mir-252 microRNA precursor family: a 98-nucleotide RNA sequence from Strongylocentrotus purpuratus. Gene Ontology terms of the family: miRNA-mediated post-transcriptional gene silencing and RISC complex. The base pairs follow the family's consensus structure, which was predicted with RNAalifold.
RNA sequence: GUUCCGUCCUAAGUACUAGUGCCGUAGGUUAACUGAGAAGGAAAGUGAAGCUAGACUAUAGCUUCUCAGACCUGUAGUACUAGUACUUAACAUGGCAC
Numbered sequence: 001g002u003u004c005c006g007u008c009c010u011a012a013g014u015a016c017u018a019g020u021g022c023c024g025u026a027g028g029u030u031a032a033c034u035g036a037g038a039a040g041g042a043a044a045g046u047g048a049a050g051c052u053a054g055a056c057u058a059u060a061g062c063u064u065c066u067c068a069g070a071c072c073u074g075u076a077g078u079a080c081u082a083g084u085a086c087u088u089a090a091c092a093u094g095g096c097a098c
Stems, first nucleotide, its partner, number of pairs: 001098002004095004010089010024075007